[Rfam]
RNA sequence: AAAUAGCCCCGAUGGAAGCGAAAAUCCUUUUAAUUUUUUUCUAUUUUUAAAAUUAAUACUACAAAAAAUUAAAAGAUUGCAGCGUACAGCGGGAACAUGG
Numbered sequence: 001a002a003a004u005a006g007c008c009c010c011g012a013u014g015g016a017a018g019c020g021a022a023a024a025u026c027c028u029u030u031u032a033a034u035u036u037u038u039u040u041c042u043a044u045u046u047u048u049a050a051a052a053u054u055a056a057u058a059c060u061a062c063a064a065a066a067a068a069u070u071a072a073a074a075g076a077u078u079g080c081a082g083c084g085u086a087c088a089g090c091g092g093g094a095a096c097a098u099g100g
Stems, first nucleotide, its partner, number of pairs: 009092003013088002018083002023078004029073011
The record is a 100-nucleotide RNA sequence from Flavobacterium enshiense, which matches "Flavo-1 RNA" in Rfam. NCBI's taxonomy places the organism under Bacteria, Pseudomonadati, Bacteroidota, Flavobacteriales, Flavobacterium enshiense.